Rfam assigns this 85-nucleotide RNA sequence from Shewanella algae to the family "c-di-GMP-I riboswitch aptamer".
The source organism's lineage runs through Bacteria, Pseudomonadati, Pseudomonadota, Gammaproteobacteria and Shewanella.
The match comes from Rfam's covariance-model search (78 bits).
RNA sequence: CUGGGUAUUUGGCAAACUGAGCGAAAGCUCAGGACGCAAAGCUUCCGGUCUAAGGCCCUCGGGUUAAGAUAGCGGGGCUGCCACA
Numbered sequence: 001c002u003g004g005g006u007a008u009u010u011g012g013c014a015a016a017c018u019g020a021g022c023g024a025a026a027g028c029u030c031a032g033g034a035c036g037c038a039a040a041g042c043u044u045c046c047g048g049u050c051u052a053a054g055g056c057c058c059u060c061g062g063g064u065u066a067a068g069a070u071a072g073c074g075g076g077g078c079u080g081c082c083a084c085a
Base pairs, nucleotide, nucleotide: 012037013036017032018031019030020029021028022027040079041078042077043076045075046074047073048070049069050068055064056063057062
Dot-bracket structure: ...........((...((((((....))))))...))..((((.((((((....(((....)))...)))..)))))))......
About the family: GEMM was predicted in a large-scale screen for bacterial structured RNA regulatory elements.